The record is a 108-nucleotide RNA sequence from Colobus angolensis, which matches "Y RNA" in Rfam. The family's RNA type in Rfam is non-coding RNA gene. A search with the family's covariance model found it, with a score of 49 bits. The family's consensus secondary structure is taken from published work.
[Rfam]
RNA sequence: AGCCAGUCCAAGUGCAGUGGUAUUGAUAUUUACAACUAAUUGAUCACAAACAGUUACAGAUUUCUUUGUUCCUUCUCCACUCCCACUCCUUCACCUGACUAUCCUUAG
Numbered sequence: 001a002g003c004c005a006g007u008c009c010a011a012g013u014g015c016a017g018u019g020g021u022a023u024u025g026a027u028a029u030u031u032a033c034a035a036c037u038a039a040u041u042g043a044u045c046a047c048a049a050a051c052a053g054u055u056a057c058a059g060a061u062u063u064c065u066u067u068g069u070u071c072c073u074u075c076u077c078c079a080c081u082c083c084c085a086c087u088c089c090u091u092c093a094c095c096u097g098a099c100u101a102u103c104c105u106u107a108g
Base pairs, nucleotide, nucleotide: 002103005100006099007098008097010096014092016087017086018085019084020083034070035069036068038066039065